[Rfam]
RNA sequence: CGUCAACGCAAGGAGGCAGAUAUGGGACUAACGCAUUCUUUGAAUGUCCUGAUCGUCGGUGCAGCGUUUGUGUUCAUUGGCGCUAUGCUCUUCAUCUGAGACAUAAGCGGCAUCAUCAGGCAGAACAGCUGGUAAAGAUCGCAUAUCCCUAAAGUCGCCUUUGAGGCACGGGUUCAAAACAUAAGGCGCAUGGACCAGAGCGGUUCAUGCGCCUU
Numbered sequence: 001c002g003u004c005a006a007c008g009c010a011a012g013g014a015g016g017c018a019g020a021u022a023u024g025g026g027a028c029u030a031a032c033g034c035a036u037u038c039u040u041u042g043a044a045u046g047u048c049c050u051g052a053u054c055g056u057c058g059g060u061g062c063a064g065c066g067u068u069u070g071u072g073u074u075c076a077u078u079g080g081c082g083c084u085a086u087g088c089u090c091u092u093c094a095u096c097u098g099a100g101a102c103a104u105a106a107g108c109g110g111c112a113u114c115a116u117c118a119g120g121c122a123g124a125a126c127a128g129c130u131g132g133u134a135a136a137g138a139u140c141g142c143a144u145a146u147c148c149c150u151a152a153a154g155u156c157g158c159c160u161u162u163g164a165g166g167c168a169c170g171g172g173u174u175c176a177a178a179a180c181a182u183a184a185g186g187c188g189c190a191u192g193g194a195c196c197a198g199a200g201c202g203g204u205u206c207a208u209g210c211g212c213c214u215u
Stems, first nucleotide, its partner, number of pairs: 015048004024040004183215013

This 215-nucleotide sequence from Rhizobium sp. RU36D belongs to the Rfam family "Rhizobiales sRNA Atu_C9". The family's RNA type in Rfam is small RNA. The literature on the family includes a 2012 paper in RNA Biol by Wilms et al., "Deep sequencing uncovers numerous small RNAs on all four replicons of the plant pathogen Agrobacterium tumefaciens". The source organism's lineage runs through Bacteria, Pseudomonadati, Pseudomonadota, Hyphomicrobiales and Rhizobium. The base pairs follow the family's consensus structure, which was predicted with WAR.